[Rfam]
RNA sequence: GGCUAGCCCCGAUUGCAGCGGAAAUCCUAUUAUAGUUGUCAGGUUUUUUUACCUGACAGCUAUAAUAGAUUGAAGCGAAAAGCGGGAAUUUUG
Numbered sequence: 001g002g003c004u005a006g007c008c009c010c011g012a013u014u015g016c017a018g019c020g021g022a023a024a025u026c027c028u029a030u031u032a033u034a035g036u037u038g039u040c041a042g043g044u045u046u047u048u049u050u051a052c053c054u055g056a057c058a059g060c061u062a063u064a065a066u067a068g069a070u071u072g073a074a075g076c077g078a079a080a081a082g083c084g085g086g087a088a089u090u091u092u093g
Stems, first nucleotide, its partner, number of pairs: 009085003013081002018076002023071004029066016
About this RNA: Shown here is a 93-nucleotide RNA from Flavobacterium psychrophilum, a member of the family "Flavo-1 RNA". It is annotated as a small RNA.